mir-276 microRNA precursor family: an 83-nucleotide RNA sequence from Chionoecetes opilio. On this family, see Skalsky et al., BMC Genomics 2010: "Identification of microRNAs expressed in two mosquito vectors, Aedes albopictus and Culex quinquefasciatus". The family has 42 seed sequences and 200 matches in Rfam 15.1. Rfam links the family to the GO terms RISC complex and miRNA-mediated post-transcriptional gene silencing. Taxonomically the source falls in Chionoecetes (Eukaryota, Metazoa, Protostomia, Pancrustacea).
[Rfam]
RNA sequence: CUCAGACUUACCGGCUAGCGAGGUAUAGAGUUCCUACGUGGCAACGACCGUAGGAACUUCAUACCGUGCUCUUUGGGACAGUC
Numbered sequence: 001c002u003c004a005g006a007c008u009u010a011c012c013g014g015c016u017a018g019c020g021a022g023g024u025a026u027a028g029a030g031u032u033c034c035u036a037c038g039u040g041g042c043a044a045c046g047a048c049c050g051u052a053g054g055a056a057c058u059u060c061a062u063a064c065c066g067u068g069c070u071c072u073u074u075g076g077g078a079c080a081g082u083c
Base pairs, nucleotide, nucleotide: 012075013074014073017070018069019068020067022065023064024063025062026061028059029058030057031056032055033054034053035052036051037050